[Rfam]
RNA sequence: ACACAGAAGGGAGGUGGUUCGGCAGAUGUAUCAGAUCCGGACGCGUGAGGUGACUGCGGCCUAGGGCCGUCGUCCCACGGAAACGUGGCGCCGGCACCGCCGGCCAAUCCCAAGCAGUCACCCGACCCGCGAGCCGCCGGUACCGUCCGGCCGGCUCCCCGAGGCGCCGUCACCGGCACCGAGGGGAACCAGGCUCGCGGGUCGUUCCGU
Numbered sequence: 001a002c003a004c005a006g007a008a009g010g011g012a013g014g015u016g017g018u019u020c021g022g023c024a025g026a027u028g029u030a031u032c033a034g035a036u037c038c039g040g041a042c043g044c045g046u047g048a049g050g051u052g053a054c055u056g057c058g059g060c061c062u063a064g065g066g067c068c069g070u071c072g073u074c075c076c077a078c079g080g081a082a083a084c085g086u087g088g089c090g091c092c093g094g095c096a097c098c099g100c101c102g103g104c105c106a107a108u109c110c111c112a113a114g115c116a117g118u119c120a121c122c123c124g125a126c127c128c129g130c131g132a133g134c135c136g137c138c139g140g141u142a143c144c145g146u147c148c149g150g151c152c153g154g155c156u157c158c159c160c161g162a163g164g165c166g167c168c169g170u171c172a173c174c175g176g177c178a179c180c181g182a183g184g185g186g187a188a189c190c191a192g193g194c195u196c197g198c199g200g201g202u203c204g205u206u207c208c209g210u
Stems, first nucleotide, its partner, number of pairs: 014057005059105001061103002064100001066095004071090003123204013136155006

Rfam assigns this 210-nucleotide RNA sequence from Streptomyces harbinensis to the family "Actinobacteria sRNA Ms_IGR-5".
Rfam classes the family as a small RNA.
For this family Rfam cites "Identification of small RNAs in Mycobacterium smegmatis using heterologous Hfq" (Li et al., RNA, 2013).
A search with the family's covariance model found it, with a score of 76 bits.